Description: A member of the RNA family "MIR2617 microRNA precursor family" from Medicago truncatula, 89 nucleotides long. The family's consensus secondary structure was predicted with RNAalifold. Its family is annotated with miRNA-mediated post-transcriptional gene silencing and RISC complex in the Gene Ontology. It scores 55 bits against the family's covariance model.
RNA sequence: AAGUAGUGUGACACGCUCGUUUGGAAUAUACUCUUAUGUAUGUUUAUUUAUUAUUUAAUUGCUUUGGGAUAACGGGGUGUUACAAUCUC
Numbered sequence: 001a002a003g004u005a006g007u008g009u010g011a012c013a014c015g016c017u018c019g020u021u022u023g024g025a026a027u028a029u030a031c032u033c034u035u036a037u038g039u040a041u042g043u044u045u046a047u048u049u050a051u052u053a054u055u056u057a058a059u060u061g062c063u064u065u066g067g068g069a070u071a072a073c074g075g076g077g078u079g080u081u082a083c084a085a086u087c088u089c
Stems, first nucleotide, its partner, number of pairs: 003088001005086001007084008016076006